[Rfam]
RNA sequence: AUGAUGUUUUCGGGAGAUUAAGUAGAAAACUUAACAAAGUUUUACUUUAAGAGUUUACUUAGCUAUAUAUUUUAAAUAUAUAGUAUCCUUUAAUGGAUAGCCGAAGGAGUAAGUAUUAUUUUACCGUAAUAAUUAUGAACCUCUCAGGCAAAAGGACCGAAAACGGACA
Number, nucleotide and partner (000 for none) at each position: 001a000002u000003g000004a000005u000006g164007u163008u162009u161010u160011c159012g158013g157014g000015a000016g000017a000018u000019u000020a098021a000022g000023u000024a000025g000026a000027a000028a000029a000030c000031u000032u000033a000034a000035c000036a000037a000038a000039g000040u000041u000042u000043u000044a000045c000046u000047u000048u000049a000050a000051g000052a000053g000054u000055u000056u000057a000058c000059u000060u000061a000062g000063c000064u000065a000066u000067a000068u000069a000070u000071u000072u000073u000074a000075a000076a000077u000078a000079u000080a000081u000082a000083g000084u000085a000086u000087c000088c000089u000090u000091u000092a000093a000094u000095g000096g000097a000098u020099a000100g149101c148102c147103g145104a144105a000106g000107g143108a142109g141110u000111a000112a000113g136114u135115a000116u000117u000118a000119u000120u000121u000122u000123a000124c000125c000126g000127u000128a000129a000130u000131a000132a000133u000134u000135a114136u113137g000138a000139a000140c000141c109142u108143c107144u104145c103146a000147g102148g101149c100150a000151a000152a000153a000154g000155g000156a000157c013158c012159g011160a010161a009162a008163a007164c006165g000166g000167a000168c000169a000
Rfam assigns this 169-nucleotide RNA sequence from Clostridium carboxidivorans to the family "Glycine riboswitch aptamer". It scores 46 bits against the family's covariance model. The pairing is the family consensus, mapped onto this sequence.